[Rfam]
RNA sequence: AAAUCUUGUCACUUGUGUGAUCUCUGUGGUAACUCUUUAGACAUUACUUCGAACGAGUUUAGUGAACGAAUAUCUAAUGAAAGCCCUUCUACUAGUGGUCAGCCUGGUCGUGAUUAGCGUGGUGGUGAUUAUUAUUCCACCGUGCGGGGCUGCACUUGGGAGAAGAAAGGCUUAAAAAUCAAGCCUGAAUCGAAGAGAACCCCCGCACCGAAAGGUCCGGGGGUUUUUUGUUGGUUGUAGCAAUGUUUGGUGAGGAACAGAGAAUGAGCAACAGUAUAAAAUCCUGUUUCUUCCGUAACGA
Number, nucleotide and partner (000 for none) at each position: 001a000002a000003a000004u000005c000006u032007u031008g030009u029010c028011a027012c026013u000014u000015g022016u000017g000018u000019g000020a000021u000022c015023u000024c000025u000026g012027u011028g010029g009030u008031a007032a006033c000034u000035c000036u000037u000038u072039a071040g000041a000042c068043a000044u065045u064046a063047c062048u061049u000050c057051g000052a000053a000054c000055g000056a000057g050058u000059u000060u000061a048062g047063u046064g045065a044066a000067c000068g042069a000070a000071u039072a038073u000074c000075u000076a000077a000078u000079g000080a000081a000082a000083g000084c000085c255086c254087u253088u000089c250090u249091a248092c000093u245094a244095g000096u000097g241098g000099u000100c000101a238102g236103c000104c234105u233106g232107g231108u000109c119110g118111u117112g000113a000114u000115u000116a000117g111118c110119g109120u000121g141122g140123u139124g138125g137126u000127g136128a135129u134130u000131a000132u000133u000134a129135u128136u127137c125138c124139a123140c122141c121142g000143u160144g000145c158146g157147g156148g155149g000150c000151u000152g000153c000154a000155c148156u147157u146158g145159g000160g143161a000162g000163a000164a190165g000166a000167a000168a000169g186170g185171c000172u183173u182174a000175a000176a000177a000178a000179u000180c000181a000182a173183g172184c000185c170186u169187g000188a000189a000190u164191c000192g000193a000194a229195g228196a227197g226198a225199a224200c223201c222202c221203c220204c219205g218206c000207a216208c215209c214210g000211a000212a000213a000214g209215g208216u207217c000218c205219g204220g203221g202222g201223g200224u199225u198226u197227u196228u195229u194230g000231u107232u106233g105234g104235u000236u102237g000238u101239a000240g000241c097242a000243a000244u094245g093246u000247u000248u091249g090250g089251u000252g000253a087254g086255g085256a288257a287258c286259a285260g284261a000262g282263a000264a277265u276266g275267a000268g000269c000270a000271a000272c000273a000274g000275u266276a265277u264278a000279a000280a000281a000282u262283c000284c260285u259286g258287u257288u256289u000290c000291u000292u000293c000294c000295g000296u000297a000298a000299c000300g000301a000
The family of this 301-nucleotide RNA sequence from Jejuibacter calystegiae is "Soft rot Enterobacteriaceae Rev 39 5'UTR". The family's consensus secondary structure was predicted with RNAfold. The family's RNA type in Rfam is cis-regulatory element. The literature on the family includes a 2016 paper in BMC Genomics by Kwenda et al., "Discovery and profiling of small RNAs responsive to stress conditions in the plant pathogen Pectobacterium atrosepticum". From bacteria cultured under starvation conditions.